Description
Rfam assigns this 127-nucleotide sequence from Dendrobium nobile to the family "U11 spliceosomal RNA". The source organism's lineage runs through Eukaryota, Viridiplantae, Streptophytina, Euphyllophyta and Dendrobium.

RNA sequence: AAAAUGGGUCGGUUGGCUAUGUAUGUCAUGCACAUCAUUUAAUUGAUGGGUGUUGUAUGGUUAUCAAGACAUAUGACCAACAUAAUUUAUGAAUGGUAUAGGGUUGGCUUUCUCGGCCAACCCUCUU
Numbered sequence: 001a002a003a004a005u006g007g008g009u010c011g012g013u014u015g016g017c018u019a020u021g022u023a024u025g026u027c028a029u030g031c032a033c034a035u036c037a038u039u040u041a042a043u044u045g046a047u048g049g050g051u052g053u054u055g056u057a058u059g060g061u062u063a064u065c066a067a068g069a070c071a072u073a074u075g076a077c078c079a080a081c082a083u084a085a086u087u088u089a090u091g092a093a094u095g096g097u098a099u100a101g102g103g104u105u106g107g108c109u110u111u112c113u114c115g116g117c118c119a120a121c122c123c124u125c126u127u
Stems, first nucleotide, its partner, number of pairs: 008081002011078002014028004029052003033048005053076007100124008110116001